[Rfam]
RNA sequence: GGGGCUGUAGCUCAGUUGGAUAGAGCGAGCGCCUCCUAAGCGCUAGGUCGCGCGUUCGAGACGCGCCAGUCCCG
Dot-bracket structure: (((((((..((((.........)))).(((((.......))))).....(((((.......)))))))))))).
A member of the RNA family "tRNA" from Chlorogloea sp. CCALA 695, 74 nucleotides long. The family's RNA type in Rfam is transfer RNA. Taxonomically the source falls in Chlorogloea (Bacteria, Bacillati, Cyanophyceae, Entophysalidaceae). A search with the family's covariance model found it, with a score of 63 bits. The base pairs follow the family's consensus structure, which is taken from published work.